[Rfam]
A member of the RNA family "RAGATH-31 RNA", 55 nucleotides long.
The family's RNA type in Rfam is small RNA.
The base pairs follow the family's consensus structure, which is taken from published work.
RNA sequence: GGAGGACGUGGGGAUUCAGGGUUGGUACACGUCGCCACCCUCCUCACGAUCCUCC
Numbered sequence: 001g002g003a004g005g006a007c008g009u010g011g012g013g014a015u016u017c018a019g020g021g022u023u024g025g026u027a028c029a030c031g032u033c034g035c036c037a038c039c040c041u042c043c044u045c046a047c048g049a050u051c052c053u054c055c
Stems, first nucleotide, its partner, number of pairs: 001055004007048008019040004024036003